[Rfam]
Nucleotides: 092
Base pairs, nucleotide, nucleotide: 002092003091004090005089006088007087008086
Number, partner (000 for none) and nucleotide at each position: 001000g002092a003091a004090g005089c006088a007087u008086c009000g010000g011000u012000g013000a014000u015000g016000a017000g018000a019000g020000a021000a022000u023000c024000c025000a026000a027000a028000u029000g030000u031000u032000a033000u034000c035000c036000u037000u038000g039000c040000a041000c042000u043000u044000u045000g046000a047000u048000u049000g050000c051000u052000a053000g054000a055000g056000g057000a058000g059000a060000a061000a062000c063000u064000u065000a066000u067000g068000g069000g070000g071000a072000a073000u074000a075000u076000a077000u078000a079000u080000c081000u082000c083000u084000g085000a086008g087007a088006u089005g090004c091003u092002u
Annotation
Small nucleolar RNA snoR26: a 92-nucleotide RNA from Cephalotus follicularis. Rfam classes the family as a C/D-box small nucleolar RNA. Rfam 15.1 lists 611 matches to the family in 220 species. Gene Ontology terms of the family: RNA processing and nucleolus. The organism belongs to Cephalotus, within Eukaryota. On this family, see Brown et al., RNA 2001: "Multiple snoRNA gene clusters from Arabidopsis".